[Rfam]
Rfam assigns this 94-nucleotide RNA from Marmota monax to the family "mir-802 microRNA precursor family". The source organism's lineage runs through Eukaryota, Eumetazoa, Vertebrata, Sarcopterygii and Marmota. Rfam 15.1 lists 133 matches to the family in 133 species. A search with the family's covariance model found it, with a score of 89 bits.
RNA sequence: UCUCUGUUAGUUGCAGUCAGUAACAGAGAUUCAUCCUUGUGUCGAUCAUGCAGCAAGGGGAAUCUCUGUCACUUCCUGUAAUUAAUGGCCACAC
Number, nucleotide and partner (000 for none) at each position: 001u000002c000003u000004c088005u087006g086007u085008u084009a083010g000011u081012u080013g079014c078015a077016g000017u000018c000019a073020g072021u071022a000023a069024c068025a067026g066027a065028g064029a063030u062031u061032c060033a000034u059035c058036c057037u056038u055039g054040u053041g051042u050043c000044g000045a000046u000047c000048a000049u000050g042051c041052a000053g040054c039055a038056a037057g036058g035059g034060g032061a031062a030063u029064c028065u027066c026067u025068g024069u023070c000071a021072c020073u019074u000075c000076c000077u015078g014079u013080a012081a011082u000083u009084a008085a007086u006087g005088g004089c000090c000091a000092c000093a000094c000